About this RNA
Shown here is an 81-nucleotide RNA from Methanoplanus limicola, a member of the family "S15-Methanomicrobia ribosomal protein leader". The literature on the family includes a 2020 paper in BMC Microbiol by Eckert and Weinberg, "Discovery of 20 novel ribosomal leader candidates in bacteria and archaea". The family's consensus secondary structure is taken from published work. The family's RNA type in Rfam is cis-regulatory leader.
[Rfam]
RNA sequence: AGCACUUAUCUUUGAUAGUGCUGGCUUUUGUAAGUCCGACGUGUUCUGUACAACAGGCACUGCCUUAUGGCUAGGGAUUAC
Numbered sequence: 001a002g003c004a005c006u007u008a009u010c011u012u013u014g015a016u017a018g019u020g021c022u023g024g025c026u027u028u029u030g031u032a033a034g035u036c037c038g039a040c041g042u043g044u045u046c047u048g049u050a051c052a053a054c055a056g057g058c059a060c061u062g063c064c065u066u067a068u069g070g071c072u073a074g075g076g077a078u079u080a081c
Stems, first nucleotide, its partner, number of pairs: 001022006030081004036076002041060005062071003
Dot-bracket structure: ((((((..........)))))).......((((..((...(((((..........))))).(((....)))...)).))))